[Rfam]
RNA sequence: CUGCAACCGGGUUCAAGUAAUCCAGGAUAGGCUCUGUAUCUGUCUUGGCCUAUGCUUGAUUACUUGCUCUUGGAGGCGG
Number, nucleotide and partner (000 for none) at each position: 001c000002u078003g077004c076005a000006a000007c073008c072009g071010g070011g069012u000013u000014c066015a065016a064017g063018u062019a061020a060021u059022c058023c000024a056025g055026g000027a053028u052029a051030g050031g049032c048033u047034c000035u000036g000037u000038a000039u000040c000041u000042g000043u000044c000045u000046u000047g033048g032049c031050c030051u029052a028053u027054g000055c025056u024057u000058g022059a021060u020061u019062a018063c017064u016065u015066g014067c000068u000069c011070u010071u009072g008073g007074a000075g000076g004077c003078g002079g000

mir-26 microRNA precursor family: a 79-nucleotide RNA sequence from Takifugu flavidus. On this family, see Lagos-Quintana et al., Science 2001: "Identification of novel genes coding for small expressed RNAs". NCBI's taxonomy places the organism under Eukaryota, Vertebrata, Gnathostomata, Ctenosquamata, Takifugu. The family has 82 seed sequences and 2,251 matches in Rfam 15.1. It scores 74 bits against the family's covariance model. Gene Ontology terms of the family: RISC complex and miRNA-mediated post-transcriptional gene silencing.